[Rfam]
RNA sequence: GGGGAGAAAGGGGAUGGUCCCCCCGCGGGCUGCAAACCCGUUGGCCUGCCUGCAACCCAGGUGGGAGUCCGGUUCGAUUCCGACUUCUCCCC
Numbered sequence: 001g002g003g004g005a006g007a008a009a010g011g012g013g014a015u016g017g018u019c020c021c022c023c024c025g026c027g028g029g030c031u032g033c034a035a036a037c038c039c040g041u042u043g044g045c046c047u048g049c050c051u052g053c054a055a056c057c058c059a060g061g062u063g064g065g066a067g068u069c070c071g072g073u074u075c076g077a078u079u080c081c082g083a084c085u086u087c088u089c090c091c092c
Base pairs, nucleotide, nucleotide: 001092002091003090004089005088006087007086008085010023011022012021013019024043025041026040027039028038029037045065046064047063048062049061068083070082071081072080
Shown here is a 92-nucleotide sequence from Desulfoscipio geothermicus, a member of the family "Selenocysteine transfer RNA". The base pairs follow the family's consensus structure, which is taken from published work. It scores 47 bits against the family's covariance model.